Rfam assigns this 54-nucleotide sequence to the family "DUF3800-VI RNA".
RNA sequence: CGGUUGGGAGGGCUGCGGCUCGCGGUCCACUGAGGUCAACACCUCACCCGGCUG
Number, nucleotide and partner (000 for none) at each position: 001c054002g053003g052004u051005u050006g049007g048008g047009a000010g028011g027012g026013c025014u024015g023016c022017g000018g000019c000020u000021c000022g016023c015024g014025g013026u012027c011028c010029a000030c000031u046032g045033a044034g043035g042036u000037c000038a000039a000040c000041a000042c035043c034044u033045c032046a031047c008048c007049c006050g005051g004052c003053u002054g001

The family's RNA type in Rfam is cis-regulatory element.